[Rfam]
RNA sequence: AAAGGAGCAAAAACCCCUCUUGAUAGACCAAGAAAGAGUUUUUUGCUCCUUAUAUUAU
Numbered sequence: 001a002a003a004g005g006a007g008c009a010a011a012a013a014c015c016c017c018u019c020u021u022g023a024u025a026g027a028c029c030a031a032g033a034a035a036g037a038g039u040u041u042u043u044u045g046c047u048c049c050u051u052a053u054a055u056u057a058u
Stems, first nucleotide, its partner, number of pairs: 002051010012040003018033005
RNA: Plastid-psbA-3 3UTR RNA